[Rfam]
RNA sequence: GAUCACGAAGCUCGGCCUCAAGCCCUCCGGCUGGCCGACUGGCAACCGCGCUGAGCGCACGGUGCCCCCGGAGGAAGAUCCGCCCGUGCCGCCGGCACGGGAAGCUGCUC
Numbered sequence: 001g002a003u004c005a006c007g008a009a010g011c012u013c014g015g016c017c018u019c020a021a022g023c024c025c026u027c028c029g030g031c032u033g034g035c036c037g038a039c040u041g042g043c044a045a046c047c048g049c050g051c052u053g054a055g056c057g058c059a060c061g062g063u064g065c066c067c068c069c070g071g072a073g074g075a076a077g078a079u080c081c082g083c084c085c086g087u088g089c090c091g092c093c094g095g096c097a098c099g100g101g102a103a104g105c106u107g108c109u110c
Stems, first nucleotide, its partner, number of pairs: 001080004009040001012038005021032002041066003046062003050058002083101008
This 110-nucleotide RNA sequence from Cellulomonas sp. KH9 belongs to the Rfam family "SAM (S-adenosyl methionine) riboswitch aptamer". From the family's description: SAM-IV is a mRNA element that regulates gene expression via direct sensing of S-adenosylmethionine (SAM or AdoMet). The base pairs follow the family's consensus structure, which is taken from published work. Taxonomically the source falls in Cellulomonas (Bacteria, Actinomycetota, Actinomycetes, Cellulomonadaceae).